[Rfam]
RNA sequence: UGGGCCAAGGGUCACCCUCUGACUCUGUGGCCAAGGGUAGACAGGUCAGAGGUCGAUCCUGGGCCUA
Number, nucleotide and partner (000 for none) at each position: 001u067002g066003g065004g064005c063006c062007a000008a060009g059010g058011g057012u056013c055014a000015c000016c052017c051018u050019c049020u048021g047022a046023c045024u000025c044026u043027g042028u041029g000030g038031c037032c036033a000034a000035g000036g032037g031038u030039a000040g000041a028042c027043a026044g025045g023046u022047c021048a020049g019050a018051g017052g016053u000054c000055g013056a012057u011058c010059c009060u008061g000062g006063g005064c004065c003066u002067a001
This 67-nucleotide sequence from Rattus norvegicus belongs to the Rfam family "mir-540 microRNA precursor family". Rfam's curators put it in the seed alignment. The literature on the family includes a 2010 paper in BMC Genomics by Linsen et al., "Small RNA expression and strain specificity in the rat". The organism belongs to Rattus, within Eukaryota.